[Rfam]
RNA sequence: UCAAAUAUUUGUUAGGUGAGGCUCCUAUAUGGACAUAAGCUGCUGCCGCGAAAGAAUCGAGAGACUCUUAGUUGGUAGAACAGGGAUGAUCGUGAAGGUCAUCCAUAAUGCAGCUGAUAGCAUCUGCUAUCUACGCCCUAUAGUGCUAAAGCUCAACAUGAACAUACGCUU
Numbered sequence: 001u002c003a004a005a006u007a008u009u010u011g012u013u014a015g016g017u018g019a020g021g022c023u024c025c026u027a028u029a030u031g032g033a034c035a036u037a038a039g040c041u042g043c044u045g046c047c048g049c050g051a052a053a054g055a056a057u058c059g060a061g062a063g064a065c066u067c068u069u070a071g072u073u074g075g076u077a078g079a080a081c082a083g084g085g086a087u088g089a090u091c092g093u094g095a096a097g098g099u100c101a102u103c104c105a106u107a108a109u110g111c112a113g114c115u116g117a118u119a120g121c122a123u124c125u126g127c128u129a130u131c132u133a134c135g136c137c138c139u140a141u142a143g144u145g146c147u148a149a150a151g152c153u154c155a156a157c158a159u160g161a162a163c164a165u166a167c168g169c170u171u
Stems, first nucleotide, its partner, number of pairs: 006166003010162001011157002013096001015153003020147003025143005031137002039114005045076004054067002057064002084104003089099003116131003
The family of this 171-nucleotide RNA from Enterococcus dispar is "M-box riboswitch aptamer (ykoK leader)".
The match comes from Rfam's covariance-model search (121 bits).
From the family's description: M-box riboswitch, also know as ykoK leader is described as a metaloregulatory RNA that sense divalent metals and function as a genetic control element of genes related to divalent metal transport in bacteria. It was first reported upstream of the B.subtilis ykoK gene and genes with related functions in other bacteria.
For this family Rfam cites "New RNA motifs suggest an expanded scope for riboswitches in bacterial genetic control" (Barrick et al., Proc Natl Acad Sci U S A, 2004).